[Rfam]
RNA sequence: GCUGUUUUCGGGUGGAUGACUCCGCAAUUUCAACACUUGAUACACUGAAAGGAAUUGCACAGUAUCCAUCUGCAAUCCGCC
Dot-bracket structure: ........(((((((((.((...((((((((...................))))))))...))))))))))).........
This 81-nucleotide RNA sequence from Echeneis naucrates belongs to the Rfam family "mir-363 microRNA precursor family".
The base pairs follow the family's consensus structure, which was predicted with RNAalifold.
The match comes from Rfam's covariance-model search (66 bits).